[Rfam]
RNA sequence: UCCCGUGACCGGGCCCCUCUGGCGUCGGCGGCAAUGUCCGCCACGCGAUGUCGGAUCACCUCG
Numbered sequence: 001u002c003c004c005g006u007g008a009c010c011g012g013g014c015c016c017c018u019c020u021g022g023c024g025u026c027g028g029c030g031g032c033a034a035u036g037u038c039c040g041c042c043a044c045g046c047g048a049u050g051u052c053g054g055a056u057c058a059c060c061u062c063g
Stems, first nucleotide, its partner, number of pairs: 007056001009054004022046004028041004
RNA: terC RNA